About this RNA: This 107-nucleotide RNA from Hathewaya histolytica belongs to the Rfam family "SAM riboswitch aptamer (S box leader)". Taxonomically the source falls in Hathewaya (Bacteria, Bacillota, Eubacteriales, Clostridiaceae). The SAM riboswitch is found upstream of a number of genes which code for proteins involved in methionine or cysteine biosynthesis in Gram-positive bacteria.
RNA sequence: UACUUAUCAAGAGUGGUGGAGGGACAGGCCCUAUGAAACCCGGCAACCAGUAUAGUAUAUUCUAUACCAGGUGCUAAUUCCUGCAGCAUUAUGCUGGUAGAUGAGGA
Dot-bracket structure: (.((((((....(.(((...(((.[[[[)))......))))((((.((.((((((......))))))..))))))...(]]]](((((...)))))..))))))).)
Numbered sequence: 001u002a003c004u005u006a007u008c009a010a011g012a013g014u015g016g017u018g019g020a021g022g023g024a025c026a027g028g029c030c031c032u033a034u035g036a037a038a039c040c041c042g043g044c045a046a047c048c049a050g051u052a053u054a055g056u057a058u059a060u061u062c063u064a065u066a067c068c069a070g071g072u073g074c075u076a077a078u079u080c081c082u083g084c085a086g087c088a089u090u091a092u093g094c095u096g097g098u099a100g101a102u103g104a105g106g107a
Stems, first nucleotide, its partner, number of pairs: 001107001003105006013041001015040003021031003025083004042075004047071002050067006079099001084096005